RNA sequence: AUGCCUUAAACUGAUGAGUAAGGAAAAUAACGACGCGGGGUGACGCCUGUGUCCUCGUUCAAACUACGAGUUGAAUUUUUGAGCGGGUAAAGGUCUGACCGCUGAGGUGACUCACCUACUUUGUGAGAUGCCUCGUGGGACCAGGACCUUCCCC
Number, nucleotide and partner (000 for none) at each position: 001a000002u000003g000004c023005c022006u021007u020008a019009a000010a000011c000012u000013g000014a000015u000016g000017a000018g000019u008020a007021a006022g005023g004024a000025a000026a000027a000028u000029a000030a000031c000032g053033a052034c051035g050036c049037g048038g047039g046040g000041u000042g000043a000044c000045g000046c039047c038048u037049g036050u035051g034052u033053c032054c070055u069056c068057g067058u066059u000060c000061a000062a000063a000064c000065u000066a058067c057068g056069a055070g054071u000072u000073g000074a000075a000076u000077u000078u000079u000080u000081g000082a000083g000084c000085g153086g152087g151088u000089a000090a000091a149092g148093g147094u146095c145096u144097g000098a000099c000100c137101g136102c000103u000104g000105a133106g132107g131108u130109g129110a000111c127112u126113c125114a124115c123116c000117u000118a000119c000120u000121u000122u000123g115124u114125g113126a112127g111128a000129u109130g108131c107132c106133u105134c000135g000136u101137g100138g000139g000140a000141c000142c000143a000144g096145g095146a094147c093148c092149u091150u000151c087152c086153c085154c000
Description:
The record is a 154-nucleotide RNA sequence from Pleuronectes platessa, which matches "U12 minor spliceosomal RNA" in Rfam. It scores 125 bits against the family's covariance model. The family is grouped with related families in Rfam's "U2 clan". A reference for the family is Otake et al. (2002), "The divergent U12-type spliceosome is required for pre-mRNA splicing and is essential for development in Drosophila", Mol Cell. The family has 62 seed sequences and 2,106 matches in Rfam 15.1. By type it is a spliceosomal small nuclear RNA.